A member of the RNA family "Small nucleolar RNA SNORA33" from Propithecus coquereli, 129 nucleotides long. From the family's description: ACA33 is a member of the H/ACA class of snoRNA that guide the sites of modification of uridines to pseudouridines. The organism belongs to Propithecus, within Eukaryota. Rfam links the family to the GO terms nucleolus and RNA processing.
[Rfam]
Nucleotides: 129
Stems, first nucleotide, its partner, number of pairs: 003060005015042005070122004082109007090101003
Number, partner (000 for none) and nucleotide at each position: 001000a002000a003060g004059c005058c006057a007056g008000c009000a010000a011000u012000g013000a014000a015042u016041c017040u018039g019038c020000u021000u022000a023000c024000c025000g026000g027000a028000a029000u030000g031000u032000g033000u034000u035000u036000c037000u038019g039018c040017a041016g042015a043000a044000a045000u046000u047000u048000u049000u050000a051000a052000a053000a054000a055000a056007c057006u058005g059004g060003c061000a062000a063000u064000a065000g066000g067000a068000a069000a070122g071121c072120c073119a074000u075000g076000c077000u078000a079000u080000g081000a082109g083108c084107c085106u086105u087104a088103a089000g090101g091100a092099c093000a094000c095000u096000g097000a098000a099092g100091u101090u102000a103088u104087u105086g106085a107084g108083g109082u110000c111000c112000c113000u114000g115000a116000a117000a118000a119073u120072g121071g122070u123000u124000a125000u126000a127000a128000c129000a